RNA sequence: AUAGGUGGAGUAAAAAUCCGCACAUAUAUCGUCACAUUACUCUGGGUGCCCGUAAAAAGGUGGAGAAUGCGGAUAUAUGGAGGCCUAAC
Numbered sequence: 001a002u003a004g005g006u007g008g009a010g011u012a013a014a015a016a017u018c019c020g021c022a023c024a025u026a027u028a029u030c031g032u033c034a035c036a037u038u039a040c041u042c043u044g045g046g047u048g049c050c051c052g053u054a055a056a057a058a059g060g061u062g063g064a065g066a067a068u069g070c071g072g073a074u075a076u077a078u079g080g081a082g083g084c085c086u087a088a089c
Stems, first nucleotide, its partner, number of pairs: 023079008035069004040065004048061003
Description:
This 89-nucleotide RNA sequence belongs to the Rfam family "t44 RNA". About the family: This family consists of a number of bacterial RNA genes of between 135 and 170 bases in length. The t44 gene has been identified in several species of enteric bacteria but homologs have also been identified in Pseudomonas and Coxiella species. A search with the family's covariance model found it, with a score of 61 bits.